[Rfam]
RNA sequence: AAUAUAGAUAAAAUCAAUUCUCAUAUAUUUUCUUAAUAAGGAAGAAAGUUUCUACUAGCUGCCGUAAAUAGCUAACUAUGAGUGUAAUUUUAAGAUGA
Numbered sequence: 001a002a003u004a005u006a007g008a009u010a011a012a013a014u015c016a017a018u019u020c021u022c023a024u025a026u027a028u029u030u031u032c033u034u035a036a037u038a039a040g041g042a043a044g045a046a047a048g049u050u051u052c053u054a055c056u057a058g059c060u061g062c063c064g065u066a067a068a069u070a071g072c073u074a075a076c077u078a079u080g081a082g083u084g085u086a087a088u089u090u091u092a093a094g095a096u097g098a
Stems, first nucleotide, its partner, number of pairs: 018084001020082006029047006056074006

Shown here is a 98-nucleotide RNA from Psychrilyobacter sp. S5, a member of the family "Purine riboswitch aptamer".
Taxonomically the source falls in Psychrilyobacter (Bacteria, Fusobacteriati, Fusobacteriales, Fusobacteriaceae).